Notes
The record is a 116-nucleotide RNA from Treponema phagedenis, which matches "TD-2 RNA" in Rfam.

RNA sequence: ACCGCCACGGACGGCGGUGGUUCUAAACAGAAUUGAGUUUGAAAACUACCACAGCGUACUCGGAGUUUUCAAACUCAUAGGUUUGGUUUUGACAUGGACGUCAAAACCAAACCGUU
Numbered sequence: 001a002c003c004g005c006c007a008c009g010g011a012c013g014g015c016g017g018u019g020g021u022u023c024u025a026a027a028c029a030g031a032a033u034u035g036a037g038u039u040u041g042a043a044a045a046c047u048a049c050c051a052c053a054g055c056g057u058a059c060u061c062g063g064a065g066u067u068u069u070c071a072a073a074c075u076c077a078u079a080g081g082u083u084u085g086g087u088u089u090u091g092a093c094a095u096g097g098a099c100g101u102c103a104a105a106a107c108c109a110a111a112c113c114g115u116u
Stems, first nucleotide, its partner, number of pairs: 001018006034077014080113014
Dot-bracket structure: ((((((......))))))...............((((((((((((((................))))))))))))))..((((((((((((((......))))))))))))))...
Source information
NCBI's taxonomy places the organism under Bacteria, Pseudomonadati, Spirochaetia, Treponemataceae, Treponema.